[Rfam]
RNA sequence: UUGAAGGCGUGGAGACUGAAGUCCUCUCUAUAUCCACAGAACAGGUAUGGCACAGGCAGCGGCAGUGCAGCUUGUCCACUGUCCCACCAUGUGCCUCAGUCCUCGUCUAGAGGGAACGUGCUUAGGGUAAGAGGGUUAUUCGGUCUCCAUGUUCUUCAAUCUGUGACUUCU
Numbered sequence: 001u002u003g004a005a006g007g008c009g010u011g012g013a014g015a016c017u018g019a020a021g022u023c024c025u026c027u028c029u030a031u032a033u034c035c036a037c038a039g040a041a042c043a044g045g046u047a048u049g050g051c052a053c054a055g056g057c058a059g060c061g062g063c064a065g066u067g068c069a070g071c072u073u074g075u076c077c078a079c080u081g082u083c084c085c086a087c088c089a090u091g092u093g094c095c096u097c098a099g100u101c102c103u104c105g106u107c108u109a110g111a112g113g114g115a116a117c118g119u120g121c122u123u124a125g126g127g128u129a130a131g132a133g134g135g136u137u138a139u140u141c142g143g144u145c146u147c148c149a150u151g152u153u154c155u156u157c158a159a160u161c162u163g164u165g166a167c168u169u170c171u
Stems, first nucleotide, its partner, number of pairs: 002158003006153002010149011023135002026133002029131001031129004037105001038103002041100001047096001050094005061083005108124003113121001
RNA: TUC338